[Rfam]
RNA sequence: GUUUUUACCCGGUAUCUUAAGGUACUAAGGGUGUCCGGCCUUCCACUCGUGGUUGUGUCGAAACCACAAUUUUUGGACUGCCUUCUCGGGGUAUCCGGGAGGGCUAU
Numbered sequence: 001g002u003u004u005u006u007a008c009c010c011g012g013u014a015u016c017u018u019a020a021g022g023u024a025c026u027a028a029g030g031g032u033g034u035c036c037g038g039c040c041u042u043c044c045a046c047u048c049g050u051g052g053u054u055g056u057g058u059c060g061a062a063a064c065c066a067c068a069a070u071u072u073u074u075g076g077a078c079u080g081c082c083u084u085c086u087c088g089g090g091g092u093a094u095c096c097g098g099g100a101g102g103g104c105u106a107u
Base pairs, nucleotide, nucleotide: 007034008033009030010029011026012025014023015022016021036060037059038058039057040055043052044051084103085102086101090096091095
SL2 RNA: a 107-nucleotide RNA from Nippostrongylus brasiliensis. Its Rfam clan is "SL clan". The literature on the family includes a 2000 paper in Mol Cell Biol by Evans and Blumenthal, "trans splicing of polycistronic Caenorhabditis elegans pre-mRNAs: analysis of the SL2 RNA". The family has 30 seed sequences and 598 matches in Rfam 15.1. The base pairs follow the family's consensus structure, which is taken from published work. The match comes from Rfam's covariance-model search (47 bits). This family represents SL2 RNA. SL2 RNA is involved in trans splicing in lower eukaryotes. Trans-splicing is a form of RNA processing. The acquisition of a spliced leader from a SL RNA is a intra-molecular reaction which precisely joins exons derived from separately transcribed RNAs.